RNA: U4 spliceosomal RNA
RNA sequence: AGCUUUGCGUUUGUGCAAUAUCAUAGCCAAUGAAGUUCUGUAGAGGCGUGAAUUCUAGUUCAAAACUAUUCCGAAUAUCCCGCCCUUUCGAAGUGAAUUACCGUUGGCCGAGGUAAUUUUUAGGAACCCGUCAAGGAG
Numbered sequence: 001a002g003c004u005u006u007g008c009g010u011u012u013g014u015g016c017a018a019u020a021u022c023a024u025a026g027c028c029a030a031u032g033a034a035g036u037u038c039u040g041u042a043g044a045g046g047c048g049u050g051a052a053u054u055c056u057a058g059u060u061c062a063a064a065a066c067u068a069u070u071c072c073g074a075a076u077a078u079c080c081c082g083c084c085c086u087u088u089c090g091a092a093g094u095g096a097a098u099u100a101c102c103g104u105u106g107g108c109c110g111a112g113g114u115a116a117u118u119u120u121u122a123g124g125a126a127c128c129c130g131u132c133a134a135g136g137a138g
Stems, first nucleotide, its partner, number of pairs: 021051004026047003035041002082114003085110001088107004093102001127138001129136001
Dot-bracket structure: ....................((((.(((......((...))...)))))))..............................((((..((((.(........).))))..).)))............(.(......).)